[Rfam]
RNA sequence: GAUAUGCGUGGAAGCGAAAGGUUGCUGACGGUUUGUCAGGUAAUUUUCGUGGAGUAUGUCCGAUUUAAAACCGGGCGA
Numbered sequence: 001g002a003u004a005u006g007c008g009u010g011g012a013a014g015c016g017a018a019a020g021g022u023u024g025c026u027g028a029c030g031g032u033u034u035g036u037c038a039g040g041u042a043a044u045u046u047u048c049g050u051g052g053a054g055u056a057u058g059u060c061c062g063a064u065u066u067a068a069a070a071c072c073g074g075g076c077g078a
Stems, first nucleotide, its partner, number of pairs: 014050003018047004025039005059078002064075003
RNA: S10-Clostridia ribosomal protein leader